[Rfam]
The record is a 164-nucleotide sequence from Clytia hemisphaerica, which matches "U1 spliceosomal RNA" in Rfam. The family's RNA type in Rfam is spliceosomal small nuclear RNA. Rfam's curators write: U1 is a small nuclear RNA (snRNA) component of the spliceosome (involved in pre-mRNA splicing). Its 5' end forms complementary base pairs with the 5' splice junction, thus defining the 5' donor site of an intron. There are significant differences in sequence and secondary structure between metazoan and yeast U1 snRNAs, the latter being much longer (568 nucleotides as compared to 164 nucleotides in human). Pairs were carried over by alignment from the consensus structure, which is taken from published work. The organism belongs to Clytia, within Eukaryota. The match comes from Rfam's covariance-model search (116 bits).

RNA sequence: AUACUUACCUGACGGGGAAGUAAAGCCUGAUCAAGGAGGGGUUUCUUCCAGAGUGAGGCCCUCGCAUUGCACGUCGCUUGGGCUGACCUCUGCGAUUGCUACAAGUGUAGUACCUCGACCGUACAAUUUUCUGGUAGUGGGGCCUGCGUCCGCGCUCGCCCCCU
Numbered sequence: 001a002u003a004c005u006u007a008c009c010u011g012a013c014g015g016g017g018a019a020g021u022a023a024a025g026c027c028u029g030a031u032c033a034a035g036g037a038g039g040g041g042u043u044u045c046u047u048c049c050a051g052a053g054u055g056a057g058g059c060c061c062u063c064g065c066a067u068u069g070c071a072c073g074u075c076g077c078u079u080g081g082g083c084u085g086a087c088c089u090c091u092g093c094g095a096u097u098g099c100u101a102c103a104a105g106u107g108u109a110g111u112a113c114c115u116c117g118a119c120c121g122u123a124c125a126a127u128u129u130u131c132u133g134g135u136a137g138u139g140g141g142g143c144c145u146g147c148g149u150c151c152g153c154g155c156u157c158g159c160c161c162c163c164u
Stems, first nucleotide, its partner, number of pairs: 012122004016049005024043005050091004055087001057084003061080001064077002093117003097112002100109002139162005146155003